[Rfam]
RNA: Burkholderia RNA 7 (anti-hemB)
Organism: Pandoraea terrae
RNA sequence: UCCCCCGCUUCUCCUCCCUGAGCGGGCGCCUGUCGUUCUACGAUUAGGCUUAUUUAAACCCGCCGUGCCUACACGGCGGUUUUUUUAU
Numbered sequence: 001u002c003c004c005c006c007g008c009u010u011c012u013c014c015u016c017c018c019u020g021a022g023c024g025g026g027c028g029c030c031u032g033u034c035g036u037u038c039u040a041c042g043a044u045u046a047g048g049c050u051u052a053u054u055u056a057a058a059c060c061c062g063c064c065g066u067g068c069c070u071a072c073a074c075g076g077c078g079g080u081u082u083u084u085u086u087a088u
Stems, first nucleotide, its partner, number of pairs: 004026006028049004033043003059078001061076001065072001